RNA sequence: ACAAAGAAAAGGCAAAAUACGCGAAAGUGUAUUACGCAAAGCCACCGGUCUAAGGGCGAAAGCCUAUGACAGCGGAGUUACCUAU
Numbered sequence: 001a002c003a004a005a006g007a008a009a010a011g012g013c014a015a016a017a018u019a020c021g022c023g024a025a026a027g028u029g030u031a032u033u034a035c036g037c038a039a040a041g042c043c044a045c046c047g048g049u050c051u052a053a054g055g056g057c058g059a060a061a062g063c064c065u066a067u068g069a070c071a072g073c074g075g076a077g078u079u080a081c082c083u084a085u
Base pairs, nucleotide, nucleotide: 012037013036017032018031019030020029021028022027040079041078042077045075046074047073048070049069050068055064056063057062

This 85-nucleotide RNA sequence from Thalassotalea sp. LPB0316 belongs to the Rfam family "c-di-GMP-I riboswitch aptamer".
From the family's description: GEMM was predicted in a large-scale screen for bacterial structured RNA regulatory elements. Genes associated with GEMM are involved in a diverse array of functions, including chemotaxis regulation, signal transduction, secretion and chitin.
Pairs were carried over by alignment from the consensus structure, which is taken from published work.
NCBI's taxonomy places the organism under Bacteria, Pseudomonadati, Alteromonadales, Colwelliaceae, Thalassotalea.
A search with the family's covariance model found it, with a score of 78 bits.